[Rfam]
RNA sequence: UAAAUAAGAGAUGAACAGACAAUGUAUCCUGGAUACAUGUAGUCGGGUCUUGUAAGGGGACAGUGGAGAUACGAUCCAUGGGACAAUU
Numbered sequence: 001u002a003a004a005u006a007a008g009a010g011a012u013g014a015a016c017a018g019a020c021a022a023u024g025u026a027u028c029c030u031g032g033a034u035a036c037a038u039g040u041a042g043u044c045g046g047g048u049c050u051u052g053u054a055a056g057g058g059g060a061c062a063g064u065g066g067a068g069a070u071a072c073g074a075u076c077c078a079u080g081g082g083a084c085a086a087u088u
Stems, first nucleotide, its partner, number of pairs: 010087001012085002016082001018044003022038006047061005063079005
Shown here is an 88-nucleotide RNA from Anaerocolumna jejuensis, a member of the family "NiCo (Nickel/Cobalt) riboswitch aptamer". On this family, see Furukawa et al., Mol Cell 2015: "Bacterial riboswitches cooperatively bind Ni(2+) or Co(2+) ions and control expression of heavy metal transporters". The match comes from Rfam's covariance-model search (47 bits).